[Rfam]
RNA sequence: AAAGUCCCAGUCUGGUAAGGACUAGCCUUCCACCAGUAUCGAGUCUUGCGCAUUAUGCGGAGCUGUAAAUGAGGAAUAUUUGUGUGGCAGGAAGCUCAGGUGAACAAAUAAUGUGAAGCGUAGACAGAGAAUUAUAUAGGCCAUAGGGAUUACCGUGAUCCUGAAGUGCUGGUAUCGCUUCGAAAAUAGCGAAUCCUAGGUGACGAGAUUGGUAACGCCAUCGAAGUCCAUGCAAAGCAAUCGUUAAGGAAAAAAAAAUAAUUUUUUUUUUCGGGCAAGAUUGUGGCGAUCUAGCGGAGUUAUAAAGCC
Numbered sequence: 001a002a003a004g005u006c007c008c009a010g011u012c013u014g015g016u017a018a019g020g021a022c023u024a025g026c027c028u029u030c031c032a033c034c035a036g037u038a039u040c041g042a043g044u045c046u047u048g049c050g051c052a053u054u055a056u057g058c059g060g061a062g063c064u065g066u067a068a069a070u071g072a073g074g075a076a077u078a079u080u081u082g083u084g085u086g087g088c089a090g091g092a093a094g095c096u097c098a099g100g101u102g103a104a105c106a107a108a109u110a111a112u113g114u115g116a117a118g119c120g121u122a123g124a125c126a127g128a129g130a131a132u133u134a135u136a137u138a139g140g141c142c143a144u145a146g147g148g149a150u151u152a153c154c155g156u157g158a159u160c161c162u163g164a165a166g167u168g169c170u171g172g173u174a175u176c177g178c179u180u181c182g183a184a185a186a187u188a189g190c191g192a193a194u195c196c197u198a199g200g201u202g203a204c205g206a207g208a209u210u211g212g213u214a215a216c217g218c219c220a221u222c223g224a225a226g227u228c229c230a231u232g233c234a235a236a237g238c239a240a241u242c243g244u245u246a247a248g249g250a251a252a253a254a255a256a257a258a259u260a261a262u263u264u265u266u267u268u269u270u271u272c273g274g275g276c277a278a279g280a281u282u283g284u285g286g287c288g289a290u291c292u293a294g295c296g297g298a299g300u301u302a303u304a305a306a307g308c309c
Stems, first nucleotide, its partner, number of pairs: 012036004019031003026249001039128002043125004047120002049115008059105001174303001177300006196294006202228003207222003233288001237284006
A member of the RNA family "Group II catalytic intron D1-D4-6" from Marinibactrum halimedae, 309 nucleotides long. A search with the family's covariance model found it, with a score of 97 bits. Rfam describes the family as follows. Group II introns are found in rRNA, tRNA and mRNA of organelles in fungi, plants and protists, and also in mRNA in bacteria. Lineage of the source: Bacteria > Gammaproteobacteria > Cellvibrionales > Cellvibrionaceae > Marinibactrum.